[Rfam]
RNA sequence: UCGGUGUAGCAGGUAAUUGCUUUUUUAAAGAGGAAAGUCCGAGCUACAGAGACAAGAUUCCAUUUAACAAAUGGCUAGGGAGACCUAAGGGAAAGUGCAACAGAAAUAUACCGCCUUUAAGCAAUUUUUUAGAAAUUAUUAGAUUUUUAGAGAAUCUUGCGAUGUUAAGGUAAGGGUGAAAAGGCAGGGUAAGAGCCUACCGGUUUUUUGGCAACAAAAAAUGCUCUGUAAACCCAAUUUGUAGCAAGAAUAGCAGGUUAUCGUCUCAUUUAGCUAUUCGCUAGAAUGAUGUUGUGAAAUAUCAUCAAGAUAAAUAAUUACCUUAUAACAGAACUCGGCUUAUAGCUACACCGGAUUU
Numbered sequence: 001u002c003g004g005u006g007u008a009g010c011a012g013g014u015a016a017u018u019g020c021u022u023u024u025u026u027a028a029a030g031a032g033g034a035a036a037g038u039c040c041g042a043g044c045u046a047c048a049g050a051g052a053c054a055a056g057a058u059u060c061c062a063u064u065u066a067a068c069a070a071a072u073g074g075c076u077a078g079g080g081a082g083a084c085c086u087a088a089g090g091g092a093a094a095g096u097g098c099a100a101c102a103g104a105a106a107u108a109u110a111c112c113g114c115c116u117u118u119a120a121g122c123a124a125u126u127u128u129u130u131a132g133a134a135a136u137u138a139u140u141a142g143a144u145u146u147u148u149a150g151a152g153a154a155u156c157u158u159g160c161g162a163u164g165u166u167a168a169g170g171u172a173a174g175g176g177u178g179a180a181a182a183g184g185c186a187g188g189g190u191a192a193g194a195g196c197c198u199a200c201c202g203g204u205u206u207u208u209u210g211g212c213a214a215c216a217a218a219a220a221a222u223g224c225u226c227u228g229u230a231a232a233c234c235c236a237a238u239u240u241g242u243a244g245c246a247a248g249a250a251u252a253g254c255a256g257g258u259u260a261u262c263g264u265c266u267c268a269u270u271u272a273g274c275u276a277u278u279c280g281c282u283a284g285a286a287u288g289a290u291g292u293u294g295u296g297a298a299a300u301a302u303c304a305u306c307a308a309g310a311u312a313a314a315u316a317a318u319u320a321c322c323u324u325a326u327a328a329c330a331g332a333a334c335u336c337g338g339c340u341u342a343u344a345g346c347u348a349c350a351c352c353g354g355a356u357u358u
Base pairs, nucleotide, nucleotide: 001354002353003352004351005350006349007348008347009346010345011343012322013321014320015319016318017317018316020030021029022028023027035341036340037339039338040337041336042335043334044244045243046242047241055240056239057238058237059236060074061073062072063071064070075089076087077086078085079084090235091234095233096232097229098228099227111175112174113171114170115169116168117167119165121163183201184200186198187197188196202224203222204221205220206219207218208217209216210215248279249278250277251276252275253274254273286305287304288303289302290301291300292299293298
Bacterial RNase P class A: a 358-nucleotide sequence from Helicobacter didelphidarum. It scores 241 bits against the family's covariance model. Its family is annotated with ribonuclease P activity, tRNA processing and dimeric ribonuclease P complex in the Gene Ontology. The organism belongs to Helicobacter, within Bacteria. It is annotated as a ribozyme.